The record is a 59-nucleotide RNA sequence from Candidatus Solibacter usitatus, which matches "Selenocysteine insertion sequence 3" in Rfam. It is one of the family's seed sequences. The family's consensus secondary structure was predicted with CMfinder. Its family is annotated with selenocysteine incorporation in the Gene Ontology. By type it is a cis-regulatory element.
RNA sequence: GUUUGACACGGCCCCACGGUCUCCAGUUUGGGGCCCACGUUCGGUCGCGGUGCGAUGAC
Dot-bracket structure: ......(.(((((..(.((.(((((...))))))).....).))))).)..........